[Rfam]
RNA sequence: AGUUGGCGUGGUGAAGGAGUUCACCCUUAACCGCUGCUCCCAGGUUCGCCUGGCGCAGAUGAUGACUCCUGACAGGGA
Dot-bracket structure: .........[[[[..((((((]]]]........(((...................))).....)))))).........
Numbered sequence: 001a002g003u004u005g006g007c008g009u010g011g012u013g014a015a016g017g018a019g020u021u022c023a024c025c026c027u028u029a030a031c032c033g034c035u036g037c038u039c040c041c042a043g044g045u046u047c048g049c050c051u052g053g054c055g056c057a058g059a060u061g062a063u064g065a066c067u068c069c070u071g072a073c074a075g076g077g078a
Stems, first nucleotide, its partner, number of pairs: 010025004016069006034058003

This 78-nucleotide RNA sequence from Edaphobacter acidisoli belongs to the Rfam family "Fluoride riboswitch aptamer (crcB RNA motif)". Its family is annotated with positive regulation of gene expression and response to fluoride in the Gene Ontology. A search with the family's covariance model found it, with a score of 36 bits.